[Rfam]
RNA sequence: CUGCGGGCUUACGCCCGCAGCUAAACGCUGACGCCGCUUCGCGGCU
Numbered sequence: 001c002u003g004c005g006g007g008c009u010u011a012c013g014c015c016c017g018c019a020g021c022u023a024a025a026c027g028c029u030g031a032c033g034c035c036g037c038u039u040c041g042c043g044g045c046u
Stems, first nucleotide, its partner, number of pairs: 001020008033045005
Dot-bracket structure: ((((((((....))))))))............(((((...))))).
RNA: Acido-Lenti-1 RNA